[Rfam]
RNA sequence: AGGAGGAGGGCCCCAAAUGAUGCGAAGCAUCAUUUAUCUCAUGGGCCCGACGAACUGCCGACGACGCCGCAGGCGGAGGGGGCGACACCUUAA
Numbered sequence: 001a002g003g004a005g006g007a008g009g010g011c012c013c014c015a016a017a018u019g020a021u022g023c024g025a026a027g028c029a030u031c032a033u034u035u036a037u038c039u040c041a042u043g044g045g046c047c048c049g050a051c052g053a054a055c056u057g058c059c060g061a062c063g064a065c066g067c068c069g070c071a072g073g074c075g076g077a078g079g080g081g082g083c084g085a086c087a088c089c090u091u092a093a
Base pairs, nucleotide, nucleotide: 008048009047010046011045012044013043017033018032019031020030021029022028057083058082059081062078065075066074067073068072
RNA: GA-cis RNA